[Rfam]
RNA sequence: UAUUUGUCAUGACAGUCACAGCAUAAAGCGCAGACGGCUGUGACCUGAUUUUAGAAAAUA
Numbered sequence: 001u002a003u004u005u006g007u008c009a010u011g012a013c014a015g016u017c018a019c020a021g022c023a024u025a026a027a028g029c030g031c032a033g034a035c036g037g038c039u040g041u042g043a044c045c046u047g048a049u050u051u052u053a054g055a056a057a058a059u060a
Stems, first nucleotide, its partner, number of pairs: 001060005015044008028035001
RNA: Selenocysteine insertion sequence 1